[Rfam]
RNA sequence: GCGGACGUGGCGAAACUGGUAGACGCAAGAGACUUAAAAUCUCUCGGCCUUAGGCUAUACGGGUUCGAUCCCCGUCGUCCGCA
Numbered sequence: 001g002c003g004g005a006c007g008u009g010g011c012g013a014a015a016c017u018g019g020u021a022g023a024c025g026c027a028a029g030a031g032a033c034u035u036a037a038a039a040u041c042u043c044u045c046g047g048c049c050u051u052a053g054g055c056u057a058u059a060c061g062g063g064u065u066c067g068a069u070c071c072c073c074g075u076c077g078u079c080c081g082c083a
Stems, first nucleotide, its partner, number of pairs: 001082007010026003028044005059075005
The family of this 83-nucleotide RNA from Ciceribacter sp. L1K22 is "tRNA". The family is grouped with related families in Rfam's "tRNA clan". By type it is a transfer RNA. The organism belongs to Ciceribacter, within Bacteria. Transfer RNA (tRNA) molecules are approximately 80 nucleotides in length. A search with the family's covariance model found it, with a score of 59 bits. Its family is annotated with triplet codon-amino acid adaptor activity in the Gene Ontology.